RNA sequence: GCCGGCCCGGACCCCCGGUCUGGCAAACUCUGCGCGCAGGUCCGGCUCGAUCCGGGCCCGCCUUCCAAGGUGUCCCCGGCGCA
Numbered sequence: 001g002c003c004g005g006c007c008c009g010g011a012c013c014c015c016c017g018g019u020c021u022g023g024c025a026a027a028c029u030c031u032g033c034g035c036g037c038a039g040g041u042c043c044g045g046c047u048c049g050a051u052c053c054g055g056g057c058c059c060g061c062c063u064u065c066c067a068a069g070g071u072g073u074c075c076c077c078g079g080c081g082c083a
Base pairs, nucleotide, nucleotide: 002018003017004016005015034082035081036080037079039058040057041056042055043054044053045052059072060071061070062069063068